Rfam assigns this 181-nucleotide RNA sequence to the family "malK-I RNA". By type it is a cis-regulatory element.
[Rfam]
RNA sequence: UCCAACCUUUCGUCGGCACUCCACUUUAUGCCGCCGGAGGGAAAACAAAAGGAGGAACAAGGUCCGCUAUGGCUGGCGGUGCGGCAGUGUGGAGACCUGUCGUAAAGCGGCGCGCCCCGCAGGGGCGGUCGUGAGGGCGUUUUUGCGGAGGCAAAACGCUCGCAGUCAGGAAACAAUGGCA
Numbered sequence: 001u002c003c004a005a006c007c008u009u010u011c012g013u014c015g016g017c018a019c020u021c022c023a024c025u026u027u028a029u030g031c032c033g034c035c036g037g038a039g040g041g042a043a044a045a046c047a048a049a050a051g052g053a054g055g056a057a058c059a060a061g062g063u064c065c066g067c068u069a070u071g072g073c074u075g076g077c078g079g080u081g082c083g084g085c086a087g088u089g090u091g092g093a094g095a096c097c098u099g100u101c102g103u104a105a106a107g108c109g110g111c112g113c114g115c116c117c118c119g120c121a122g123g124g125g126c127g128g129u130c131g132u133g134a135g136g137g138c139g140u141u142u143u144u145g146c147g148g149a150g151g152c153a154a155a156a157c158g159c160u161c162g163c164a165g166u167c168a169g170g171a172a173a174c175a176a177u178g179g180c181a
Base pairs, nucleotide, nucleotide: 006041007040008039009038010037011036012035014033015032016031017030018029064079065078066077067076070168071167072166073165074164075163080104081103082102083101084100085099086098087097089096090095107132108131109130110129111128113127114126115125135161136160137159138158139157140156141155142154144153145152146151
Dot-bracket structure: .....(((((((.(((((..........))))).)))))))......................[[[[..((((((]]]]((((((((.((....))))))))))..(((((.(((.........))))))))..((((((((.(((....))))))))))).)))))).............